The family of this 69-nucleotide RNA from Bifidobacterium boum is "Transposase-2 RNA".
NCBI's taxonomy places the organism under Bacteria, Actinomycetota, Actinomycetes, Bifidobacteriaceae, Bifidobacterium.
It is annotated as a small RNA.
Rfam 15.1 lists 214 matches to the family in 110 species.
It scores 79 bits against the family's covariance model.
RNA sequence: GAAACGUGAACCAAGCAGGCGUGCGAACGCCGUGAGACUUGGAGCUGCCCCGGGCAACCGGGGCAUGUA
Numbered sequence: 001g002a003a004a005c006g007u008g009a010a011c012c013a014a015g016c017a018g019g020c021g022u023g024c025g026a027a028c029g030c031c032g033u034g035a036g037a038c039u040u041g042g043a044g045c046u047g048c049c050c051c052g053g054g055c056a057a058c059c060g061g062g063g064c065a066u067g068u069a
Base pairs, nucleotide, nucleotide: 011042012041013040014039015038018031019030020029021028022027046065047064048063049062050061051060052059053058